[Rfam]
RNA: MIR2275 microRNA precursor family
RNA sequence: AAGUCGUAUGUGAGAAUUGGAGGGGACUAAACAAAUUACAACCUCUCUAUCUCCAUGAGAAACUCCUAAUUUGUUUAGUUUCCUCCAAUAUCUCAUCUCCGGCAU
Numbered sequence: 001a002a003g004u005c006g007u008a009u010g011u012g013a014g015a016a017u018u019g020g021a022g023g024g025g026a027c028u029a030a031a032c033a034a035a036u037u038a039c040a041a042c043c044u045c046u047c048u049a050u051c052u053c054c055a056u057g058a059g060a061a062a063c064u065c066c067u068a069a070u071u072u073g074u075u076u077a078g079u080u081u082c083c084u085c086c087a088a089u090a091u092c093u094c095a096u097c098u099c100c101g102g103c104a105u
Base pairs, nucleotide, nucleotide: 004102005101006100008098011095012094013093014092016089017088018087019086020085021084023082024081025080026079027078028077029076030075032073033072034071035070036069037068038067